[Rfam]
RNA sequence: CAAAAAGCCCGCUAUGCGUCGGCAUCAGCGGGCUUCGGUGCGGUACGACAGCGAUCGACUCGGGCCGGCUGCCGCCGGCCUUCGCUUUAGCUGUUUUGGGAAGUUGCCCCGCGUCCGCAAGCUGAUAUCAAAUCGACGCAAGGCCACAUCCUAUCACGCCUCGAUCGAAGCGUGCGC
Numbered sequence: 001c002a003a004a005a006a007g008c009c010c011g012c013u014a015u016g017c018g019u020c021g022g023c024a025u026c027a028g029c030g031g032g033c034u035u036c037g038g039u040g041c042g043g044u045a046c047g048a049c050a051g052c053g054a055u056c057g058a059c060u061c062g063g064g065c066c067g068g069c070u071g072c073c074g075c076c077g078g079c080c081u082u083c084g085c086u087u088u089a090g091c092u093g094u095u096u097u098g099g100g101a102a103g104u105u106g107c108c109c110c111g112c113g114u115c116c117g118c119a120a121g122c123u124g125a126u127a128u129c130a131a132a133u134c135g136a137c138g139c140a141a142g143g144c145c146a147c148a149u150c151c152u153a154u155c156a157c158g159c160c161u162c163g164a165u166c167g168a169a170g171c172g173u174g175c176g177c
Stems, first nucleotide, its partner, number of pairs: 005035009015024003039140004050086003057082002061078001063076002066074003087125006098110003111118002155174005